Notes
The record is a 132-nucleotide RNA sequence, which matches "Small nucleolar RNA SNORA71" in Rfam. It is one of the family's seed sequences. The members of this family belong to the H/ACA class of snoRNAs which bind a number of proteins (including dyskerin, Gar1p and Nop10p) to form snoRNP complexes. This class of snoRNAs are thought to guide the sites of modification of uridines to pseudouridines by forming direct base pairing interactions with substrate RNAs. This family includes U71 (SNORA71), ACA39 (SNORA39) and ACA60 (SNORA60). On this family, see Ganot et al., Genes Dev 1997: "The family of box ACA small nucleolar RNAs is defined by an evolutionarily conserved secondary structure and ubiquitous sequence elements essential for RNA accumulation". By type it is an H/ACA-box small nucleolar RNA. Gene Ontology terms of the family: nucleolus and RNA processing. Pairs were carried over by alignment from the consensus structure, which was predicted with PFOLD.

[Rfam]
RNA sequence: ACCUGCAUUCGAAAGUGAUCGUGGUCUGCUGCGUGGCCCGGUCAUUGAUAGUGCAGGGAGAGGAACACGAAGGCGUUUCCCGUGUUUGGUUGGGUCUGUGCUAUCCCUCCCAAACCCUGUAGCGUUCGGACA
Numbered sequence: 001a002c003c004u005g006c007a008u009u010c011g012a013a014a015g016u017g018a019u020c021g022u023g024g025u026c027u028g029c030u031g032c033g034u035g036g037c038c039c040g041g042u043c044a045u046u047g048a049u050a051g052u053g054c055a056g057g058g059a060g061a062g063g064a065a066c067a068c069g070a071a072g073g074c075g076u077u078u079c080c081c082g083u084g085u086u087u088g089g090u091u092g093g094g095u096c097u098g099u100g101c102u103a104u105c106c107c108u109c110c111c112a113a114a115c116c117c118u119g120u121a122g123c124g125u126u127c128g129g130a131c132a
Base pairs, nucleotide, nucleotide: 002057003056004055005054006053007052008051009050014046015045016044017043018042019041020040021039023038024037025036026035066129068128069127070126071125073123074122084115085114086113087112088111089109092106093105